Background:
A member of the RNA family "DUF805b RNA" from Kordia sp. SMS9, 35 nucleotides long. Taxonomically the source falls in Kordia (Bacteria, Pseudomonadati, Bacteroidota, Flavobacteriia). Pairs were carried over by alignment from the consensus structure, which is taken from published work. Rfam classes the family as a cis-regulatory element.
RNA sequence: CAGGUCGCUUCCGAAAAACCUUAACAGAGUAGGAA
Number, nucleotide and partner (000 for none) at each position: 001c000002a021003g020004g019005u018006c000007g000008c000009u000010u034011c033012c032013g000014a000015a000016a000017a000018a005019c004020c003021u002022u000023a000024a000025c000026a000027g000028a000029g000030u000031a000032g012033g011034a010035a000